The family of this 114-nucleotide sequence from Danaus plexippus is "Potassium channel RNA editing signal".
Gene Ontology term of the family: adenosine to inosine editing.
Rfam describes the family as follows. This family represents a group of sequences related to the human potassium channel Kv1.1 hairpin element which directs the efficient modification of an adenosine to inosine by an adenosine deaminase acting on RNA (ADAR).
By type it is a cis-regulatory element.
A search with the family's covariance model found it, with a score of 94 bits.
RNA sequence: GUGGGCUAUGGAGACAUGGCGCCCAAGACUUAUUUGGGGAUGUUCGUGGGCGCCCUCUGUGCGCUGGCUGGCGUGCUCACUAUAGCGUUGCCAGUUCCUGUCAUUGUAUCAAAU
Numbered sequence: 001g002u003g004g005g006c007u008a009u010g011g012a013g014a015c016a017u018g019g020c021g022c023c024c025a026a027g028a029c030u031u032a033u034u035u036g037g038g039g040a041u042g043u044u045c046g047u048g049g050g051c052g053c054c055c056u057c058u059g060u061g062c063g064c065u066g067g068c069u070g071g072c073g074u075g076c077u078c079a080c081u082a083u084a085g086c087g088u089u090g091c092c093a094g095u096u097c098c099u100g101u102c103a104u105u106g107u108a109u110c111a112a113a114u
Base pairs, nucleotide, nucleotide: 001114002113005110007108008107009106010105011104013102014101015100016099018097019096021095022094037077038076040074050062051061
Dot-bracket structure: ((..(.(((((.((((.((.((..............((.(.........((.........))...........).))................)))).)))).))))).)..))